[Rfam]
Nucleotides: 079
Base pairs, nucleotide, nucleotide: 003052005050006049007048008047009046010045011044012043015040016039017067018066019065020064021063025036026035027034028033058072059071060070
Number, partner (000 for none) and nucleotide at each position: 001000a002000a003052u004000g005050g006049u007048a008047u009046g010045c011044g012043u013000a014000a015040c016039u017067g018066g019065c020064g021063u022000a023000a024000c025036g026035c027034a028033g029000g030000u031000c032000a033028c034027u035026g036025c037000g038000g039016g040015g041000g042000a043012g044011c045010g046009c047008a048007u049006a050005u051000g052003g053000c054000a055000u056000a057000a058072g059071c060070c061000g062000u063021a064020c065019g066018c067017c068000u069000g070060g071059g072058c073000a074000g075000a076000g077000c078000a079000u
The record is a 79-nucleotide sequence from Paenibacillus solanacearum, which matches "ZMP/ZTP riboswitch aptamer (pfl RNA motif)" in Rfam.